[Rfam]
The record is a 50-nucleotide RNA sequence from Origma solitaria, which matches "Guanidine-II riboswitch aptamer (mini-ykkC)" in Rfam.

RNA sequence: GAACGGGGACGGCCCUGCCCGGCGAGGCUCCGGGAACGGGGACGGCCCCG
Numbered sequence: 001g002a003a004c005g006g007g008g009a010c011g012g013c014c015c016u017g018c019c020c021g022g023c024g025a026g027g028c029u030c031c032g033g034g035a036a037c038g039g040g041g042a043c044g045g046c047c048c049c050g
Stems, first nucleotide, its partner, number of pairs: 001020001004017005037050005
A reference for the family is Huang et al. (2017), "The Structure of the Guanidine-II Riboswitch", Cell Chem Biol.
The source organism's lineage runs through Eukaryota, Chordata, Dipnotetrapodomorpha, Archosauria and Origma.
Gene Ontology term of the family: regulation of gene expression.